[Rfam]
RNA sequence: CUGCGAGGACGACCUCCCCCAUCUGGGCAUUCCCGCGGGACGACCCGC
Numbered sequence: 001c002u003g004c005g006a007g008g009a010c011g012a013c014c015u016c017c018c019c020c021a022u023c024u025g026g027g028c029a030u031u032c033c034c035g036c037g038g039g040a041c042g043a044c045c046c047g048c
Stems, first nucleotide, its partner, number of pairs: 003018001005016004035048005
The record is a 48-nucleotide RNA sequence from Microvirga makkahensis, which matches "Guanidine-II riboswitch aptamer (mini-ykkC)" in Rfam. The family's consensus secondary structure is taken from published work. From the family's description: Simpler in structure and has fewer highly conserved nucleotide positions than the ykkC-yxkD leader. Despite this each of its two stem-loop structures directly bind free guanidine. Therefore, mini-ykkC RNA motif represents a distinct class of guanidine-sensing RNAs. Its crystal structure was also determined.